[Rfam]
Overview: The record is a 164-nucleotide sequence from Anhinga rufa, which matches "U1 spliceosomal RNA" in Rfam. It is annotated as a spliceosomal small nuclear RNA. The family has 100 seed sequences and 40,184 matches in Rfam 15.1. Gene Ontology terms of the family: pre-mRNA 5'-splice site binding, mRNA 5'-splice site recognition and U1 snRNP. On this family, see Zwieb, Nucleic Acids Res 1997: "The uRNA database". U1 is a small nuclear RNA (snRNA) component of the spliceosome (involved in pre-mRNA splicing).
RNA sequence: CUGAUUACCUGGCAGGGGAGACACCAUGAUCAGGCAGGUGGUUUUCCCAAGGCGAUACUCAUCCCCUGCACUCCAGGUGUGCUGACCCCUGCGAUUUCCCCAAAUGCGGGAAAAUCGACUGCAUAAUUUGUGGUAGUGGGGGACUGCAUUUGCGCACGCGUCAC
Numbered sequence: 001c002u003g004a005u006u007a008c009c010u011g012g013c014a015g016g017g018g019a020g021a022c023a024c025c026a027u028g029a030u031c032a033g034g035c036a037g038g039u040g041g042u043u044u045u046c047c048c049a050a051g052g053c054g055a056u057a058c059u060c061a062u063c064c065c066c067u068g069c070a071c072u073c074c075a076g077g078u079g080u081g082c083u084g085a086c087c088c089c090u091g092c093g094a095u096u097u098c099c100c101c102a103a104a105u106g107c108g109g110g111a112a113a114a115u116c117g118a119c120u121g122c123a124u125a126a127u128u129u130g131u132g133g134u135a136g137u138g139g140g141g142g143a144c145u146g147c148a149u150u151u152g153c154g155c156a157c158g159c160g161u162c163a164c
Base pairs, nucleotide, nucleotide: 012122013121014120015119016048017047018046019045020044021043023042024041025040026039027038049090051088052087054086058081060079061078062077063076092117093116094115095113096112097111099109100108137163138162139161141159145156146155147154